[Rfam]
purD RNA motif: a 148-nucleotide sequence from Helicobacter muridarum. NCBI's taxonomy places the organism under Bacteria, Pseudomonadati, Epsilonproteobacteria, Helicobacteraceae, Helicobacter. For this family Rfam cites "Identification of 22 candidate structured RNAs in bacteria using the CMfinder comparative genomics pipeline" (Weinberg et al., Nucleic Acids Res, 2007). The base pairs follow the family's consensus structure, which is taken from published work.

RNA sequence: GCAGCUAGUCCAUGUGUGUCGAUGUUUUCGUUCUAUAUGGUGAAGAAUGCUAAGCGUUCAAGAAUUUGUCGCCUAAUUGGAUUCUAAGACCCUUUUUUUGUAGCUUUUGUUGGGCUCACACAAUAAAUAGAGUAACGUUCUUUUGGGU
Dot-bracket structure: ..((..(((((........(((((..(((................................)))..))))).......)))))))..............(((((((.....))))).)).............................